Rfam assigns this 39-nucleotide RNA sequence from Lentivirus humimdef1 to the family "Human immunodeficiency virus type 1 dimerisation initiation site". Rfam describes the family as follows. This cis element is composed of four hairpins called SL1 to SL4 (SL is for Stem Loop). Rfam links the family to the GO term viral RNA genome packaging. It is annotated as a cis-regulatory element.

RNA sequence: AGACUCGGCUUGCUGAGUGCACACGGCAAGAGGCGAGAA
Dot-bracket structure: ...((((.(((((((........)))))))...))))..
Numbered sequence: 001a002g003a004c005u006c007g008g009c010u011u012g013c014u015g016a017g018u019g020c021a022c023a024c025g026g027c028a029a030g031a032g033g034c035g036a037g038a039a
Stems, first nucleotide, its partner, number of pairs: 004037004009030007